Shown here is an 88-nucleotide RNA from Carnobacterium sp. 17-4, a member of the family "SAM-III riboswitch aptamer (SMK box)".
A reference for the family is Fuchs et al. (2007), "S-adenosylmethionine directly inhibits binding of 30S ribosomal subunits to the SMK box translational riboswitch RNA", Proc Natl Acad Sci U S A.
Rfam links the family to the GO terms methionine adenosyltransferase activity and regulation of translational initiation.
RNA sequence: AAGGUUUGCAAAUCGGAUUCCCGAGAGGAUUCACUUUAAAAGUGGAGAAGCCUUGUAACCGAACAAUUAAAGGGGGAACAAUGUAAUG
Numbered sequence: 001a002a003g004g005u006u007u008g009c010a011a012a013u014c015g016g017a018u019u020c021c022c023g024a025g026a027g028g029a030u031u032c033a034c035u036u037u038a039a040a041a042g043u044g045g046a047g048a049a050g051c052c053u054u055g056u057a058a059c060c061g062a063a064c065a066a067u068u069a070a071a072g073g074g075g076g077a078a079c080a081a082u083g084u085a086a087u088g
Stems, first nucleotide, its partner, number of pairs: 018078005025054004030046005059073002